The family of this 286-nucleotide part of an RNA from Phaeodactylum tricornutum is "Eukaryotic large subunit ribosomal RNA". The base pairs follow the family's consensus structure, which is taken from published work. Clan: LSU clan. It is one of the family's seed sequences. Rfam 15.1 lists 107,465 matches to the family in 2,616 species. The source organism's lineage runs through Eukaryota, Sar, Stramenopiles, Neidiineae and Phaeodactylum tricornutum.

RNA sequence: GAGUUUAACAUAUGUGCGAGUACAGGGGUGGCAAACCCCGGUGCGCAAUGAAAGUGACAGUGGCUGGACGCCAGCAAUGGCUGCACAGUCCGCCGGCCUCAAUCCUUCGGGAGAACGGUCUGAGUGUGAGCAUACAUGUUGAGACCCGAAAGAUGGUGAACUAUGCCUGAAUAGGGUGAAGCCAGGGGAAACUCUGGUGGAGGCUCGUAGCGAUUCUGACGUGCAAAUCGAUCGUCAAAUUUGGGUAUAGGGGCGAAAGACUAAUCGAACUAUCUAGUAGCUGGUU
Numbered sequence: 001g002a003g004u005u006u007a008a009c010a011u012a013u014g015u016g017c018g019a020g021u022a023c024a025g026g027g028g029u030g031g032c033a034a035a036c037c038c039c040g041g042u043g044c045g046c047a048a049u050g051a052a053a054g055u056g057a058c059a060g061u062g063g064c065u066g067g068a069c070g071c072c073a074g075c076a077a078u079g080g081c082u083g084c085a086c087a088g089u090c091c092g093c094c095g096g097c098c099u100c101a102a103u104c105c106u107u108c109g110g111g112a113g114a115a116c117g118g119u120c121u122g123a124g125u126g127u128g129a130g131c132a133u134a135c136a137u138g139u140u141g142a143g144a145c146c147c148g149a150a151a152g153a154u155g156g157u158g159a160a161c162u163a164u165g166c167c168u169g170a171a172u173a174g175g176g177u178g179a180a181g182c183c184a185g186g187g188g189a190a191a192c193u194c195u196g197g198u199g200g201a202g203g204c205u206c207g208u209a210g211c212g213a214u215u216c217u218g219a220c221g222u223g224c225a226a227a228u229c230g231a232u233c234g235u236c237a238a239a240u241u242u243g244g245g246u247a248u249a250g251g252g253g254c255g256a257a258a259g260a261c262u263a264a265u266c267g268a269a270c271u272a273u274c275u276a277g278u279a280g281c282u283g284g285u286u
Stems, first nucleotide, its partner, number of pairs: 005142007013134005020044003025039005048055002062090005070081002092125002094122003097118002103112002145284002148281001152274006161250011172238001174206004181198007210235004215231002218229002252262002